RNA sequence: UCUAAUGGAAGCGAAGAAACGCCCUGCCUAAACGGGCACCAUGGUGGGGCGUGGAGCGAGUGGUGCGACCGACCUCGGA
Number, nucleotide and partner (000 for none) at each position: 001u079002c078003u077004a000005a075006u000007g074008g073009a000010a000011g057012c056013g000014a000015a000016g000017a000018a000019a052020c051021g050022c049023c048024c047025u046026g045027c000028c000029u000030a000031a000032a000033c000034g070035g069036g066037c065038a064039c063040c062041a000042u000043g000044g000045u026046g025047g024048g023049g022050c021051g020052u019053g000054g000055a000056g012057c011058g000059a000060g000061u000062g040063g039064u038065g037066c036067g000068a000069c035070c034071g000072a000073c008074c007075u005076c000077g003078g002079a001
A member of the RNA family "c-di-GMP-II-GAG riboswitch aptamer", 79 nucleotides long. The family's consensus secondary structure is taken from published work. For this family Rfam cites "Bioinformatic analysis of riboswitch structures uncovers variant classes with altered ligand specificity" (Weinberg et al., Proc Natl Acad Sci U S A, 2017).